[Rfam]
RNA: FMN riboswitch aptamer (RFN element)
RNA sequence: UGAAUUCUUCGGGGUCGGGUGUAAAUCCCAACCGGCGGUAUAGCCCGCGAGCUUUUUUAAGCAGGAUUUGGUGUGAUUCCAAAGCCGACAGUACAGUCUGGAUGAGAGAAGGAUGUA
Number, nucleotide and partner (000 for none) at each position: 001u000002g000003a000004a114005u113006u112007c111008u110009u109010c108011g000012g000013g000014g000015u000016c000017g029018g028019g027020u000021g000022u000023a000024a000025a000026u000027c019028c018029c017030a000031a097032c096033c087034g086035g048036c047037g046038g045039u000040a000041u000042a000043g085044c084045c038046c037047g036048c035049g000050a000051g062052c061053u060054u000055u000056u000057u000058u000059a000060a053061g052062c051063a000064g000065g000066a000067u083068u082069u081070g080071g079072u000073g000074u000075g000076a000077u000078u000079c071080c070081a069082a068083a067084g044085c043086c034087g033088a000089c100090a099091g098092u000093a000094c000095a000096g032097u031098c091099u090100g089101g000102a000103u000104g000105a000106g000107a000108g010109a009110a008111g007112g006113a005114u004115g000116u000117a000